[Rfam]
RNA sequence: CCCGAGGGCGUCCGCCCUCGGGGCCCUGUCCCCGGUACCUGAUACGGCCGGGGCAG
Numbered sequence: 001c002c003c004g005a006g007g008g009c010g011u012c013c014g015c016c017c018u019c020g021g022g023g024c025c026c027u028g029u030c031c032c033c034g035g036u037a038c039c040u041g042a043u044a045c046g047g048c049c050g051g052g053g054c055a056g
Stems, first nucleotide, its partner, number of pairs: 001022009026056003030053007
The record is a 56-nucleotide RNA, which matches "L17-Actino-Proteobacteria ribosomal protein leader" in Rfam. A reference for the family is Eckert and Weinberg (2020), "Discovery of 20 novel ribosomal leader candidates in bacteria and archaea", BMC Microbiol. Rfam classes the family as a cis-regulatory leader. The match comes from Rfam's covariance-model search (71 bits).